Rfam assigns this 143-nucleotide RNA sequence from Paenibacillus thalictri to the family "c-di-AMP riboswitch aptamer (ydaO/yuaA leader)". From the family's description: This family represents a conserved RNA structure found upstream of the ydaO and yuaA genes in Bacillus subtilis and related genes in other bacteria. The ydaO/yuaA element is thought to act as a genetic 'off' switch for the ydaO and yuaA genes in its native state. It is believed that the element may be triggered during osmotic shock leading to activation of ydaO, a predicted amino acid transporter gene, and members of the yuaA-yubG operon which code for KtrA and KtrB K+ transporters. A search with the family's covariance model found it, with a score of 73 bits.
RNA sequence: UUUAAACAAGUGUCGAAUCCAAUACGGAUCACGUAUUGGUACGGGGGACGCUUUUACAUGGGGUGAAUGUGCGACUUGUCAAACUAGGGAAAACCUCUUCCCGAACCCGUCAACUAACCUCGGAGGCUAUAGGAGGUACGUUU
Numbered sequence: 001u002u003u004a005a006a007c008a009a010g011u012g013u014c015g016a017a018u019c020c021a022a023u024a025c026g027g028a029u030c031a032c033g034u035a036u037u038g039g040u041a042c043g044g045g046g047g048a049c050g051c052u053u054u055u056a057c058a059u060g061g062g063g064u065g066a067a068u069g070u071g072c073g074a075c076u077u078g079u080c081a082a083a084c085u086a087g088g089g090a091a092a093a094c095c096u097c098u099u100c101c102c103g104a105a106c107c108c109g110u111c112a113a114c115u116a117a118c119c120u121c122g123g124a125g126g127c128u129a130u131a132g133g134a135g136g137u138a139c140g141u142u143u
Base pairs, nucleotide, nucleotide: 012127013126014125019039020038021037022036023035024034025033026032042122043121044120045119046118051060061108062107063106069084070083087102088101089100090099